[Rfam]
RNA sequence: AUUUCUCUGAGGUGUUCGCCAGCGGGCCCGUCCCCUGAGCCGAUAAUUUUUACCACAAGAAUGUGGCGAUCUGUAACUGGUGCGCAAGCUCGGCUCGUCCGAGAAGCCUUAAGGUUAUAACGCUGCGUUCACCUUGAACCAUGGGUUCAAGGGUUACAGCCUGCGGCGGCAUCUCGGAGAUCCA
Numbered sequence: 001a002u003u004u005c006u007c008u009g010a011g012g013u014g015u016u017c018g019c020c021a022g023c024g025g026g027c028c029c030g031u032c033c034c035c036u037g038a039g040c041c042g043a044u045a046a047u048u049u050u051u052a053c054c055a056c057a058a059g060a061a062u063g064u065g066g067c068g069a070u071c072u073g074u075a076a077c078u079g080g081u082g083c084g085c086a087a088g089c090u091c092g093g094c095u096c097g098u099c100c101g102a103g104a105a106g107c108c109u110u111a112a113g114g115u116u117a118u119a120a121c122g123c124u125g126c127g128u129u130c131a132c133c134u135u136g137a138a139c140c141a142u143g144g145g146u147u148c149a150a151g152g153g154u155u156a157c158a159g160c161c162u163g164c165g166g167c168g169g170c171a172u173c174u175c176g177g178a179g180a181u182c183c184a
Base pairs, nucleotide, nucleotide: 004180005179006178007177008176009175010174011173012172013171014170015169017168018167019166032153033152034151036149037148038147039146040145041144059130060129061128063126064125065124066123067122068121070120072119073118074117075116076115077114078113084107085106089103090102091101092100093099
6S / SsrS RNA: a 184-nucleotide sequence from Acerihabitans arboris.
A search with the family's covariance model found it, with a score of 143 bits.
E. coli 6S RNA was the first non coding RNA to be sequenced, but its function was unknown until recently. It consists of 184 nucleotides that fold into an extended hairpin structure with a large single-stranded internal bulge. The 6S RNA specifically associates with RNA polymerase holoenzyme containing the sigma70 specificity factor.
The organism belongs to Acerihabitans, within Bacteria.
The literature on the family includes a 2017 paper in Molecular Cell by Chen et al., "6S RNA Mimics B-Form DNA to Regulate Escherichia coli RNA Polymerase".